[Rfam]
RNA sequence: GACUUACGUUCAGUAGCAAGCUUAACCAAAUAGGGGAGGCGUAGGGAAACCGAGUCCGAAUAGGGCGCACAGUUGCUGGGCGUAGACCCGAAACCAAGUGAUCUAUCCAUGGCCAGGAUGAAGGUGCGGUAACACGCACUGGAGGUCCGAACCCACUAACGUUGCAAAGUUAGGGGAUGAGCUGUGGAUAGGGGUGAAAGGCUAAACAAACUUGGAAAUAGCUGGUU
Numbered sequence: 001g002a003c004u005u006a007c008g009u010u011c012a013g014u015a016g017c018a019a020g021c022u023u024a025a026c027c028a029a030a031u032a033g034g035g036g037a038g039g040c041g042u043a044g045g046g047a048a049a050c051c052g053a054g055u056c057c058g059a060a061u062a063g064g065g066c067g068c069a070c071a072g073u074u075g076c077u078g079g080g081c082g083u084a085g086a087c088c089c090g091a092a093a094c095c096a097a098g099u100g101a102u103c104u105a106u107c108c109a110u111g112g113c114c115a116g117g118a119u120g121a122a123g124g125u126g127c128g129g130u131a132a133c134a135c136g137c138a139c140u141g142g143a144g145g146u147c148c149g150a151a152c153c154c155a156c157u158a159a160c161g162u163u164g165c166a167a168a169g170u171u172a173g174g175g176g177a178u179g180a181g182c183u184g185u186g187g188a189u190a191g192g193g194g195u196g197a198a199a200g201g202c203u204a205a206a207c208a209a210a211c212u213u214g215g216a217a218a219u220a221g222c223u224g225g226u227u
Base pairs, nucleotide, nucleotide: 005084006083007082008081009080010079011078012077013076014075015074016073017072020040021039022038023037026034027033044051045050054066055065056064057063087225088224090222094215095214096213097212098211099210103191104190105189106188107187108186109185110184111183112182113181114179116148117147118146119145123140124139125138126137127136128135152176153175154174156173157172158171159170160169193203194202195201